Selenocysteine transfer RNA: a 92-nucleotide RNA sequence from Ancylobacter defluvii.
Lineage of the source: Bacteria > Pseudomonadota > Alphaproteobacteria > Xanthobacteraceae > Ancylobacter.
[Rfam]
RNA sequence: GGAAGAGAGUUAUCUCCGGUGAGGUAGCUGGUCUUCAAAACCAGAAGGGGCCGCUCGCCGGUCCUUGGUGGGUUCGACUCCCACUCUCUUCC
Numbered sequence: 001g002g003a004a005g006a007g008a009g010u011u012a013u014c015u016c017c018g019g020u021g022a023g024g025u026a027g028c029u030g031g032u033c034u035u036c037a038a039a040a041c042c043a044g045a046a047g048g049g050g051c052c053g054c055u056c057g058c059c060g061g062u063c064c065u066u067g068g069u070g071g072g073u074u075c076g077a078c079u080c081c082c083a084c085u086c087u088c089u090u091c092c
Base pairs, nucleotide, nucleotide: 001092002091003090004089005088006087007086008085009084011026012025013024014023015022016021028044029043030042031041032040047065048064049063050062051061069083070082071081072080

A search with the family's covariance model found it, with a score of 77 bits. The family has 109 seed sequences and 4,211 matches in Rfam 15.1.